[Rfam]
Background
Bacterial RNase P class A: a 346-nucleotide RNA sequence from Alteromonas halophila. The family's consensus secondary structure is taken from published work. Gene Ontology terms of the family: tRNA processing, ribonuclease P activity and dimeric ribonuclease P complex. Rfam's curators write: Ribonuclease P (RNase P) is a ubiquitous endoribonuclease, found in archaea, bacteria and eukarya as well as chloroplasts and mitochondria. Lineage of the source: Bacteria > Pseudomonadati > Alteromonadales > Alteromonadaceae > Alteromonas. Rfam classes the family as a ribozyme.
RNA sequence: GGAGUUGGCCAGGCAACCGCCGCUUUUUUUAAGGGGAGGAAAGUCCGGGCUCCACAGGGCAGGGUGCCAGAUAACGUCUGGGCGGCGCGAGCCGACGACCAGUGCAGCAGAGAGUAAACCGCCUAAGCGCGCAAGCGCCGGUAAGGGUGAAAGGGUGCGGUAAGAGCGCACCGCGCCCCUGGUAACAGGGUGUGGCACGGUAAACUCCACCCGGAGCAAGACCAAAUAGGAUCCCAGUACGUGCGGCCCGCAUGGGGAUCGGGUAGGUUGCUUGAGUCAGUGAGUGAUUGCUGACCUAGAGGAAUGGUUGCCCACGACAGAACCCGGCUUAUGGCCAGCUCCACUU
Numbered sequence: 001g002g003a004g005u006u007g008g009c010c011a012g013g014c015a016a017c018c019g020c021c022g023c024u025u026u027u028u029u030u031a032a033g034g035g036g037a038g039g040a041a042a043g044u045c046c047g048g049g050c051u052c053c054a055c056a057g058g059g060c061a062g063g064g065u066g067c068c069a070g071a072u073a074a075c076g077u078c079u080g081g082g083c084g085g086c087g088c089g090a091g092c093c094g095a096c097g098a099c100c101a102g103u104g105c106a107g108c109a110g111a112g113a114g115u116a117a118a119c120c121g122c123c124u125a126a127g128c129g130c131g132c133a134a135g136c137g138c139c140g141g142u143a144a145g146g147g148u149g150a151a152a153g154g155g156u157g158c159g160g161u162a163a164g165a166g167c168g169c170a171c172c173g174c175g176c177c178c179c180u181g182g183u184a185a186c187a188g189g190g191u192g193u194g195g196c197a198c199g200g201u202a203a204a205c206u207c208c209a210c211c212c213g214g215a216g217c218a219a220g221a222c223c224a225a226a227u228a229g230g231a232u233c234c235c236a237g238u239a240c241g242u243g244c245g246g247c248c249c250g251c252a253u254g255g256g257g258a259u260c261g262g263g264u265a266g267g268u269u270g271c272u273u274g275a276g277u278c279a280g281u282g283a284g285u286g287a288u289u290g291c292u293g294a295c296c297u298a299g300a301g302g303a304a305u306g307g308u309u310g311c312c313c314a315c316g317a318c319a320g321a322a323c324c325c326g327g328c329u330u331a332u333g334g335c336c337a338g339c340u341c342c343a344c345u346u
Base pairs, nucleotide, nucleotide: 001342002341003340004339005338006337007336008335009334010333011332012312013311014310015309016308017307018306020036021035023033024032025031041330042329043328045327046326047325048324049323050216051215052214053213057249058248059247060246062212063211064210065209066208067081068080069079070078071077082096083094084093085092086091097207098206102205103204104201105200119146120145121142122141123140127138128137129136130135154172155171156170157169158168159167173196174194175193176192177190178189179188180187181186220269221268222267223266230260231259232258233257234256235255240254241253242252243251244250276295277294278293279292280291281290282289283288
Dot-bracket structure: ((((((((((((((((((.((.(((.....))).))....[[[.[[[[[((((...[[[[.((((((((((.....)))))(((((....)))).)((...((((.............(((((...((((....)))).)))..)).......((((((.......))))))(((((((((....))))).))).)...))..)))))))))))))...((((......((((((....(((((.]]]]))))))))))).....))))......((((((((....))))))))..........)))))))..........]]]]]]]].)))))))))))....